[Rfam]
RNA sequence: UGCGCAGGGCGUGUUUCACAACGAUGUUGUAAAAACUCACGCCCUUAAGCCGCGCGGUGCGGAUAUAUUGCGCCACCAUGACUUCGGCCAUCGAGGCGCGGGUCAUGCGGGCGAUAUAGCCCAUGCCGUAAAGCGCAAUGGUGAUUACCGGCAGGGUAAAGUUCUCAAAGGUCGGGUUC
Number, nucleotide and partner (000 for none) at each position: 001u000002g000003c000004g000005c140006a139007g000008g000009g136010c135011g134012u133013g000014u131015u130016u128017c000018a000019c000020a000021a124022c000023g000024a000025u000026g000027u000028u123029g122030u000031a000032a000033a000034a000035a000036c000037u000038c113039a000040c111041g000042c109043c000044c000045u000046u105047a000048a103049g000050c101051c100052g099053c098054g097055c000056g074057g073058u072059g071060c070061g069062g068063a000064u000065a000066u000067a000068u062069u061070g060071c059072g058073c057074c056075a000076c000077c000078a000079u000080g000081a000082c096083u095084u094085c093086g092087g000088c000089c000090a000091u000092c086093g085094a084095g083096g082097c054098g053099c052100g051101g050102g000103u048104c000105a046106u000107g000108c000109g042110g000111g040112c000113g038114a000115u000116a000117u000118a000119g000120c000121c000122c029123a028124u021125g000126c000127c000128g016129u000130a015131a014132a000133g012134c011135g010136c009137a000138a000139u006140g005141g000142u000143g000144a000145u000146u000147a177148c175149c174150g173151g172152c171153a000154g165155g164156g163157u000158a000159a000160a000161g000162u000163u156164c155165u154166c000167a000168a000169a000170g000171g152172u151173c150174g149175g148176g000177u147178u000179c000
RNA: Ruegeria cis52 sRNA
Organism: Pelagimonas phthalicica